[Rfam]
RNA sequence: UAGGGCGACAGCAAAAUAUCAGAUAGCCAGACAGGCCACGAAAAGACACUCACCGGACUUAUACCCGCAUUGGCAGGUGCCAAUAUGAUAUACGGUCUGG
Numbered sequence: 001u002a003g004g005g006c007g008a009c010a011g012c013a014a015a016a017u018a019u020c021a022g023a024u025a026g027c028c029a030g031a032c033a034g035g036c037c038a039c040g041a042a043a044a045g046a047c048a049c050u051c052a053c054c055g056g057a058c059u060u061a062u063a064c065c066c067g068c069a070u071u072g073g074c075a076g077g078u079g080c081c082a083a084u085a086u087g088a089u090a091u092a093c094g095g096u097c098u099g100g
Stems, first nucleotide, its partner, number of pairs: 003012001033062001035060001077098001079096002

Pyrrolysine insertion sequence mttB: a 100-nucleotide RNA sequence from Desulfamplus magnetovallimortis. On this family, see Theil Have et al., BMC Bioinformatics 2013: "Effects of using coding potential, sequence conservation and mRNA structure conservation for predicting pyrroly-sine containing genes". NCBI's taxonomy places the organism under Bacteria, Pseudomonadati, Thermodesulfobacteriota, Desulfobacteraceae, Desulfamplus. Rfam classes the family as a cis-regulatory element.